About this RNA
The record is a 71-nucleotide sequence from Candidatus Tokpelaia sp. JSC161, which matches "tRNA" in Rfam. Rfam classes the family as a transfer RNA. It scores 64 bits against the family's covariance model. The family's consensus secondary structure is taken from published work.
RNA sequence: UGGGGUAUAGCCAAGAGGUAAGGCAACGGUUUUUGGUACCGUCAUCCCUGGUUCGAAUCCAGGUACCCCAG
Numbered sequence: 001u002g003g004g005g006u007a008u009a010g011c012c013a014a015g016a017g018g019u020a021a022g023g024c025a026a027c028g029g030u031u032u033u034u035g036g037u038a039c040c041g042u043c044a045u046c047c048c049u050g051g052u053u054c055g056a057a058u059c060c061a062g063g064u065a066c067c068c069c070a071g
Stems, first nucleotide, its partner, number of pairs: 001070007010024003026042005047063005
The source organism's lineage runs through Bacteria, Pseudomonadati, Pseudomonadota, Hyphomicrobiales and Candidatus Tokpelaia.